Shown here is a 68-nucleotide sequence from Rodentolepis nana, a member of the family "HDV ribozyme from F. prausnitzii".

[Rfam]
RNA sequence: GGUGUGCGAUAGACACCUCCACGUGGUGCACACUGGGCAACGUAUUCUCAUGCGACAAAAAAGUCUAU
Number, nucleotide and partner (000 for none) at each position: 001g034002g033003u032004g031005u030006g029007c028008g000009a000010u000011a000012g000013a000014c000015a027016c026017c025018u000019c000020c000021a000022c000023g000024u000025g017026g016027u015028g007029c006030a005031c004032a003033c002034u001035g000036g000037g000038c000039a000040a000041c054042g053043u052044a051045u050046u000047c000048u000049c000050a045051u044052g043053c042054g041055a000056c000057a000058a000059a000060a000061a000062a000063g000064u000065c000066u000067a000068u000

Its family is annotated with catalytic activity in the Gene Ontology. The base pairs follow the family's consensus structure, which is taken from published work.